[Rfam]
Actino-pnp RNA: a 62-nucleotide RNA sequence.
It scores 63 bits against the family's covariance model.

RNA sequence: GCCGGUCCUCGGUAGUGGCCCCCUGGUGGCAGACACCCAGGGGACUUCGAUCGAAGACCGGC
Dot-bracket structure: (((((((.(((((...((.(((((((((.....)).))))))).))...))))).)))))))
Numbered sequence: 001g002c003c004g005g006u007c008c009u010c011g012g013u014a015g016u017g018g019c020c021c022c023c024u025g026g027u028g029g030c031a032g033a034c035a036c037c038c039a040g041g042g043g044a045c046u047u048c049g050a051u052c053g054a055a056g057a058c059c060g061g062c
Stems, first nucleotide, its partner, number of pairs: 001062007009054005017046002020043007027035002